Shown here is an 85-nucleotide RNA from Populus trichocarpa, a member of the family "mir-393 microRNA precursor family". Pairs were carried over by alignment from the consensus structure. For this family Rfam cites "Role of microRNAs and other sRNAs of plants in their changing environments" (Kruszka et al., J Plant Physiol, 2012). Rfam links the family to the GO terms miRNA-mediated post-transcriptional gene silencing and RISC complex. The source organism's lineage runs through Eukaryota, Gunneridae, rosids, fabids and Populus.
RNA sequence: AGAGGAGGCAUCCAAAGGGAUCGCAUUGAUCCCAAGUGUCUGUCCCCCAUAAUUUUGGAUCAUGCUAUCCCUUUGGAUUCCUCCU
Numbered sequence: 001a002g003a004g005g006a007g008g009c010a011u012c013c014a015a016a017g018g019g020a021u022c023g024c025a026u027u028g029a030u031c032c033c034a035a036g037u038g039u040c041u042g043u044c045c046c047c048c049a050u051a052a053u054u055u056u057g058g059a060u061c062a063u064g065c066u067a068u069c070c071c072u073u074u075g076g077a078u079u080c081c082u083c084c085u
Base pairs, nucleotide, nucleotide: 003085004084005083006082008080010078011077012076013075014074015073016072017071018070019069020068021067023065024064025063026062028061029060030059031058032057

Rfam's curators put it in the seed alignment.